[Rfam]
RNA: mir-17 microRNA precursor family
RNA sequence: AUGUCAAAGUGCUUACAGUGCAGGUAGUGAUAAGUAGAACCUACUGCAGUGAAGGCACUUGUAGCAU
Numbered sequence: 001a002u003g004u005c006a007a008a009g010u011g012c013u014u015a016c017a018g019u020g021c022a023g024g025u026a027g028u029g030a031u032a033a034g035u036a037g038a039a040c041c042u043a044c045u046g047c048a049g050u051g052a053a054g055g056c057a058c059u060u061g062u063a064g065c066a067u
Stems, first nucleotide, its partner, number of pairs: 001067001003065002007060008016051002019048003023045005